Rfam assigns this 94-nucleotide RNA sequence to the family "PhotoRC-II RNA".
[Rfam]
RNA sequence: UCUCAUAAACACCUUGCCCCACCAGGACUAAUGGGCAAGUAAAAUCCGUCCUUCAUAUCUGCGAUGGAGGGUGUCGCAGAACAUAACUGUAACU
Numbered sequence: 001u002c003u004c005a006u007a008a009a010c011a012c013c014u015u016g017c018c019c020c021a022c023c024a025g026g027a028c029u030a031a032u033g034g035g036c037a038a039g040u041a042a043a044a045u046c047c048g049u050c051c052u053u054c055a056u057a058u059c060u061g062c063g064a065u066g067g068a069g070g071g072u073g074u075c076g077c078a079g080a081a082c083a084u085a086a087c088u089g090u091a092a093c094u
Stems, first nucleotide, its partner, number of pairs: 014038005020033002024052005058080007
Rfam's curators put it in the seed alignment. The base pairs follow the family's consensus structure, which is taken from published work.